[Rfam]
RNA sequence: AGUUGGUCCGAAGGUUGUGGGUUAUUGUUAAACUGUUUAGCAUUGUCCCCCACCCACAACCCGAUUUGACUAGCUUUGC
Numbered sequence: 001a002g003u004u005g006g007u008c009c010g011a012a013g014g015u016u017g018u019g020g021g022u023u024a025u026u027g028u029u030a031a032a033c034u035g036u037u038u039a040g041c042a043u044u045g046u047c048c049c050c051c052a053c054c055c056a057c058a059a060c061c062c063g064a065u066u067u068g069a070c071u072a073g074c075u076u077u078g079c
Base pairs, nucleotide, nucleotide: 001075002074003073004072005071006070007069008068010067011066016058017057018056019055020054021053026042027041028040030038031037

Record summary:
Shown here is a 79-nucleotide RNA sequence from Orycteropus afer, a member of the family "Y RNA". Lineage of the source: Eukaryota > Bilateria > Deuterostomia > Eutheria > Orycteropus afer. Rfam classes the family as a non-coding RNA gene.